Rfam assigns this 67-nucleotide RNA to the family "S15-Flavobacteria ribosomal protein leader". Rfam classes the family as a cis-regulatory leader.
RNA sequence: UACCUUUGCACACGAAUAGGAAAAUCCUAAUUCACUACAUAAUAAUCAUUUAAACAAUAUUAGCAUG
Numbered sequence: 001u002a003c004c005u006u007u008g009c010a011c012a013c014g015a016a017u018a019g020g021a022a023a024a025u026c027c028u029a030a031u032u033c034a035c036u037a038c039a040u041a042a043u044a045a046u047c048a049u050u051u052a053a054a055c056a057a058u059a060u061u062a063g064c065a066u067g
Stems, first nucleotide, its partner, number of pairs: 014032002017029003